This 109-nucleotide sequence from Shouchella oshimensis belongs to the Rfam family "epsC RNA". The organism belongs to Shouchella oshimensis, within Bacteria.
[Rfam]
Nucleotides: 109
Base pairs, nucleotide, nucleotide: 001020002019003018004017007035008034009033010032011031012030013029036092037091038090039089040087041086042085043084044083045082046081047080050061051060052059053058064076065075066074067073096108097107098106099105
Number, partner (000 for none) and nucleotide at each position: 001020u002019g003018g004017u005000c006000a007035u008034g009033u010032c011031u012030u013029c014000a015000a016000a017004a018003c019002c020001g021000u022000u023000a024000u025000c026000a027000a028000u029013g030012a031011a032010g033009g034008c035007a036092c037091u038090c039089g040087g041086c042085u043084a044083u045082g046081c047080u048000a049000a050061g051060g052059g053058u054000a055000a056000g057000u058053a059052c060051c061050u062000u063000a064076g065075g066074c067073g068000c069000a070000a071000g072000u073067c074066g075065c076064c077000g078000a079000u080047g081046g082045c083044a084043u085042a086041g087040u088000g089039u090038g091037a092036g093000g094000a095000g096108g097107g098106g099105u100000u101000u102000a103000a104000u105099g106098c107097c108096u109000g